[Rfam]
RNA: Small nucleolar RNA SNORD101
Nucleotides: 079
Base pairs, nucleotide, nucleotide: 001079002078003077004076005075
Number, partner (000 for none) and nucleotide at each position: 001079g002078u003077u004076u005075g006000a007000a008000u009000g010000a011000u012000g013000a014000c015000u016000a017000a018000a019000a020000a021000g022000u023000c024000g025000g026000a027000u028000a029000c030000c031000c032000c033000u034000u035000c036000a037000c038000u039000c040000u041000a042000a043000u044000u045000g046000u047000a048000u049000c050000a051000u052000g053000a054000g055000u056000g057000a058000a059000a060000a061000u062000u063000c064000u065000a066000g067000u068000a069000g070000u071000c072000u073000g074000a075005c076004a077003a078002a079001c